[Rfam]
RNA sequence: ACUGGAAGAAGUAGCGAUCUUUUGUAAGCCGAGUGGCAGUCAUGGAGGGAUGAAUUGGUCUAUGGGUGGGUCAACGGUCAGUUGAUUACCUUGUCGAAGGAAGUGUCUUGCAGAGCUUGGUGUUCAACAUUCGGAUCUGAGCGUAGGCUCUGGAUACGGAGGUUGUUCAAUAUCGAGGCAAAGCCCAAGGGUAGCAAUACAGCAGGGAAAACUCGAAGCACUGAUGCGGCUGUAAGAUGGCACUCUGGAGAGGAUUUAUCGGCUGGCUGCCAUCGUGGGCCAAAACUACCCCUUUU
Numbered sequence: 001a002c003u004g005g006a007a008g009a010a011g012u013a014g015c016g017a018u019c020u021u022u023u024g025u026a027a028g029c030c031g032a033g034u035g036g037c038a039g040u041c042a043u044g045g046a047g048g049g050a051u052g053a054a055u056u057g058g059u060c061u062a063u064g065g066g067u068g069g070g071u072c073a074a075c076g077g078u079c080a081g082u083u084g085a086u087u088a089c090c091u092u093g094u095c096g097a098a099g100g101a102a103g104u105g106u107c108u109u110g111c112a113g114a115g116c117u118u119g120g121u122g123u124u125c126a127a128c129a130u131u132c133g134g135a136u137c138u139g140a141g142c143g144u145a146g147g148c149u150c151u152g153g154a155u156a157c158g159g160a161g162g163u164u165g166u167u168c169a170a171u172a173u174c175g176a177g178g179c180a181a182a183g184c185c186c187a188a189g190g191g192u193a194g195c196a197a198u199a200c201a202g203c204a205g206g207g208a209a210a211a212c213u214c215g216a217a218g219c220a221c222u223g224a225u226g227c228g229g230c231u232g233u234a235a236g237a238u239g240g241c242a243c244u245c246u247g248g249a250g251a252g253g254a255u256u257u258a259u260c261g262g263c264u265g266g267c268u269g270c271c272a273u274c275g276u277g278g279g280c281c282a283a284a285a286c287u288a289c290c291c292c293u294u295u296u
Stems, first nucleotide, its partner, number of pairs: 001040003004023006028037003044293002047290002050287001055283006065274005075269012089253004094248001099246002102244005107236007115227002117224007125165004130160004135155005140149003166172001173216005184207003191200003

Source information: Shown here is a 296-nucleotide RNA sequence from Hesseltinella vesiculosa, a member of the family "Metazoan signal recognition particle RNA". NCBI's taxonomy places the organism under Eukaryota, Mucoromycotina, Mucoromycetes, Cunninghamellaceae, Hesseltinella. It scores 117 bits against the family's covariance model.